Rfam assigns this 192-nucleotide sequence from Bacillus sp. MUM 116 to the family "Lysine riboswitch aptamer". NCBI's taxonomy places the organism under Bacteria, Bacilli, Caryophanales, Bacillaceae, Bacillus.
[Rfam]
RNA sequence: CGAUGGGGUAGAGGUCGCGGAUUUUAAUAGUAAGACGGACGAGAUGUGAGAGACAUCUUUGACUCCGUUUGAAAGGAAAAGCCGCCGAAGCAUGCUUUUGUCUCUUAAAAAAACAUGCUGGGUCUGUCUCCGAAUAGGAACAGAACUGUCAUGAUUAGACCUACCAGCUAAUCAUGUUGAGCUAUCUUUCGG
Numbered sequence: 001c002g003a004u005g006g007g008g009u010a011g012a013g014g015u016c017g018c019g020g021a022u023u024u025u026a027a028u029a030g031u032a033a034g035a036c037g038g039a040c041g042a043g044a045u046g047u048g049a050g051a052g053a054c055a056u057c058u059u060u061g062a063c064u065c066c067g068u069u070u071g072a073a074a075g076g077a078a079a080a081g082c083c084g085c086c087g088a089a090g091c092a093u094g095c096u097u098u099u100g101u102c103u104c105u106u107a108a109a110a111a112a113a114c115a116u117g118c119u120g121g122g123u124c125u126g127u128c129u130c131c132g133a134a135u136a137g138g139a140a141c142a143g144a145a146c147u148g149u150c151a152u153g154a155u156u157a158g159a160c161c162u163a164c165c166a167g168c169u170a171a172u173c174a175u176g177u178u179g180a181g182c183u184a185u186c187u188u189u190c191g192g
Stems, first nucleotide, its partner, number of pairs: 006187006017085004022080004033070007089119006096112004120147002123144005129138002150176009